[Rfam]
RNA sequence: UAAACAUGGGCAAGUCUCUUACGGUCAGCUCCCUCGGAAUCCCCCAGGAUGGGAACAUAGCAAGGGUACUUGGUUGUAGCGACGCGAUAAGAAUAGCUUGCCCACCU
Numbered sequence: 001u002a003a004a005c006a007u008g009g010g011c012a013a014g015u016c017u018c019u020u021a022c023g024g025u026c027a028g029c030u031c032c033c034u035c036g037g038a039a040u041c042c043c044c045c046a047g048g049a050u051g052g053g054a055a056c057a058u059a060g061c062a063a064g065g066g067u068a069c070u071u072g073g074u075u076g077u078a079g080c081g082a083c084g085c086g087a088u089a090a091g092a093a094u095a096g097c098u099u100g101c102c103c104a105c106c107u
Stems, first nucleotide, its partner, number of pairs: 008103008017092005022086002024083002
This 107-nucleotide RNA sequence from Hallella bergensis belongs to the Rfam family "Bacteroidales small SRP".
Rfam classes the family as a non-coding RNA gene.
Lineage of the source: Bacteria > Bacteroidia > Bacteroidales > Hallella > Hallella bergensis.
Its Rfam clan is "SRP clan".
The literature on the family includes a 2020 paper in Nat Commun by Ryan et al., "A high-resolution transcriptome map identifies small RNA regulation of metabolism in the gut microbe Bacteroides thetaiotaomicron".